[Rfam]
The family of this 142-nucleotide RNA from Pseudothermotoga thermarum is "FMN riboswitch aptamer (RFN element)". Taxonomically the source falls in Pseudothermotoga thermarum (Bacteria, Thermotogati, Thermotogota, Thermotogales). The base pairs follow the family's consensus structure, which is taken from published work.
RNA sequence: AAGCGUCUUCAGGGCAGGGUGGAAUUCCCGACCGGCGGUGAUGGACAAGUUCUUGUCCUAAGCCCGCGAGCCCUUCGAAAGAAGGGUUGAUCUGGUGAAAAUCCAGAGCCGACGGUUAAAGUCCGGAUGGGAGAAGACGGAA
Numbered sequence: 001a002a003g004c005g006u007c008u009u010c011a012g013g014g015c016a017g018g019g020u021g022g023a024a025u026u027c028c029c030g031a032c033c034g035g036c037g038g039u040g041a042u043g044g045a046c047a048a049g050u051u052c053u054u055g056u057c058c059u060a061a062g063c064c065c066g067c068g069a070g071c072c073c074u075u076c077g078a079a080a081g082a083a084g085g086g087u088u089g090a091u092c093u094g095g096u097g098a099a100a101a102u103c104c105a106g107a108g109c110c111g112a113c114g115g116u117u118a119a120a121g122u123c124c125g126g127a128u129g130g131g132a133g134a135a136g137a138c139g140g141a142a
Stems, first nucleotide, its partner, number of pairs: 004139007017029003031122002033111002035067004062109002070087003091107005113125003
Dot-bracket structure: ...(((((((......(((.......))).[[((((((.......................[[))))..(((............)))...(((((.......)))))]])).(((.....]]))).......)))))))...